[Rfam]
RNA sequence: ACGACCUUACUUGAACAGGAUUUGUUCUAUAGGCUCGUAUCUCUGUAUCCUUGAGUUCUAAGGAGACAGGAAACCAAGCUUGGUGGAUGAAUUUAUGGCCAAGAGAUUGGAGCGUGAUUAACAGCUCUAGUCCUUCAUUGGGAUGAGCUGUAGAGGAUCGUUCUCAGCCAUGGGUUCAUGGUUGGGGUGGUCUCUUGGCUGUCUGACAAGCU
Numbered sequence: 001a002c003g004a005c006c007u008u009a010c011u012u013g014a015a016c017a018g019g020a021u022u023u024g025u026u027c028u029a030u031a032g033g034c035u036c037g038u039a040u041c042u043c044u045g046u047a048u049c050c051u052u053g054a055g056u057u058c059u060a061a062g063g064a065g066a067c068a069g070g071a072a073a074c075c076a077a078g079c080u081u082g083g084u085g086g087a088u089g090a091a092u093u094u095a096u097g098g099c100c101a102a103g104a105g106a107u108u109g110g111a112g113c114g115u116g117a118u119u120a121a122c123a124g125c126u127c128u129a130g131u132c133c134u135u136c137a138u139u140g141g142g143a144u145g146a147g148c149u150g151u152a153g154a155g156g157a158u159c160g161u162u163c164u165c166a167g168c169c170a171u172g173g174g175u176u177c178a179u180g181g182u183u184g185g186g187g188u189g190g191u192c193u194c195u196u197g198g199c200u201g202u203c204u205g206a207c208a209a210g211c212u
Stems, first nucleotide, its partner, number of pairs: 001038002003035001005033003013027006043069004048064006078211005098199012111162004121151007131143004164185009
The record is a 212-nucleotide RNA sequence from Ipomoea nil, which matches "Plant small nucleolar RNA U3" in Rfam. By type it is a C/D-box small nucleolar RNA. For this family Rfam cites "The uRNA database" (Zwieb, Nucleic Acids Res, 1997). Small nucleolar RNAs (snoRNAs) are involved in the processing and modification of rRNA in the nucleolus. There are two main classes of snoRNAs: the box C/D class, and the box H/ACA class. A search with the family's covariance model found it, with a score of 179 bits.